[Rfam]
RNA sequence: GGUUUCCAUUGGUGCAAGUCGAAUUACCUCAAUGUAAGAUGGGAAGCAAUUCUCCAUUGGUAUAAAAUGAUUAUCCAUUAAGCGGAGGAAU
Numbered sequence: 001g002g003u004u005u006c007c008a009u010u011g012g013u014g015c016a017a018g019u020c021g022a023a024u025u026a027c028c029u030c031a032a033u034g035u036a037a038g039a040u041g042g043g044a045a046g047c048a049a050u051u052c053u054c055c056a057u058u059g060g061u062a063u064a065a066a067a068u069g070a071u072u073a074u075c076c077a078u079u080a081a082g083c084g085g086a087g088g089a090a091u
Base pairs, nucleotide, nucleotide: 009023010022012020052087053086054085055084056078057077059075060074061073062072

A member of the RNA family "Plastid-rps12 3UTR RNA" from Swertia mussotii, 91 nucleotides long.
For this family Rfam cites "Retrograde signaling in plants: A critical review focusing on the GUN pathway and beyond" (Richter et al., Plant Commun, 2023).
The family's consensus secondary structure was predicted with LocARNA.
Taxonomically the source falls in Swertia (Eukaryota, Viridiplantae, Gunneridae, Gentianales).
Plastid rpl20 is a non-coding RNA (ncRNA) recognised in plastids.